[Rfam]
RNA sequence: CGCCUCUGCCCUUCCUGGGCGUUUCCUCCCUAAUGAACUAGCCCGGCCUUACCGCCGGGCUUUUUUUUGGCCCGA
Numbered sequence: 001c002g003c004c005u006c007u008g009c010c011c012u013u014c015c016u017g018g019g020c021g022u023u024u025c026c027u028c029c030c031u032a033a034u035g036a037a038c039u040a041g042c043c044c045g046g047c048c049u050u051a052c053c054g055c056c057g058g059g060c061u062u063u064u065u066u067u068u069g070g071c072c073c074g075a
Base pairs, nucleotide, nucleotide: 008020009019010018011017041060042059043058044057045056046055047054
The record is a 75-nucleotide sequence from Caulobacter radicis, which matches "Makes More Granules Regulator RNA (mmgR)" in Rfam.
Its family is annotated with response to nitrogen compound, DNA-templated transcription, termination and protein binding in the Gene Ontology.
Rfam 15.1 lists 1,791 matches to the family in 918 species.
Pairs were carried over by alignment from the consensus structure.
The organism belongs to Caulobacter, within Bacteria.
SuhB later renamed mmgR (makes more granules regulator) was a putative non-coding RNA found multiple times in the Agrobacterium tumefaciens genome and related alpha-proteobacteria. Other non-coding RNAs uncovered in the same analysis include: speF, ybhL, metA, and serC.Several studies inSinorhizobium meliloti showed that suhB element is indeed a non-coding RNA:firstly it was detected on Northern blot and called Sm8RNA, secondly in an RNAseq study referred to as SmelC689.The mutant phenotype's (strain lacking the small RNA) cytoplasm contains higher content of polyhydroxybutyrate (PBH)storage granules than wild type strain. The sRNA is required to limit the PBH intracellular accumulation when the nitrogen-fixing Sinorhizobium meliloti is under condition of surplus carbon in relation to nitrogen.